[Rfam]
RNA sequence: CUGAAGGGCGCGUCCGGGUCAAUUGCGGCUUGCAACACCCAAUCGCUCUCAACACACCUCCCGGAAUGGAGGUCGCUGAGGGCGAGCGCGUGACCGUCAG
Numbered sequence: 001c002u003g004a005a006g007g008g009c010g011c012g013u014c015c016g017g018g019u020c021a022a023u024u025g026c027g028g029c030u031u032g033c034a035a036c037a038c039c040c041a042a043u044c045g046c047u048c049u050c051a052a053c054a055c056a057c058c059u060c061c062c063g064g065a066a067u068g069g070a071g072g073u074c075g076c077u078g079a080g081g082g083c084g085a086g087c088g089c090g091u092g093a094c095c096g097u098c099a100g
Stems, first nucleotide, its partner, number of pairs: 001100004008091006016040003023035005043085005053080001055078002

This 100-nucleotide RNA belongs to the Rfam family "L4-Archaeoglobi ribosomal protein leades".